Notes: The record is a 55-nucleotide RNA sequence from Solanum tuberosum, which matches "MIR8008 microRNA precursor family" in Rfam. The match comes from Rfam's covariance-model search (70 bits). Taxonomically the source falls in Solanum (Eukaryota, Streptophytina, Euphyllophyta, eudicotyledons). Pairs were carried over by alignment from the consensus structure, which was predicted with RNAalifold.

RNA sequence: AAACCCAGAAAAGCGACGGACAAUGUCCUUUAGUCAGUCGCUUUUCUGGAUCUUU
Numbered sequence: 001a002a003a004c005c006c007a008g009a010a011a012a013g014c015g016a017c018g019g020a021c022a023a024u025g026u027c028c029u030u031u032a033g034u035c036a037g038u039c040g041c042u043u044u045u046c047u048g049g050a051u052c053u054u055u
Stems, first nucleotide, its partner, number of pairs: 001053001003051001005049013019035003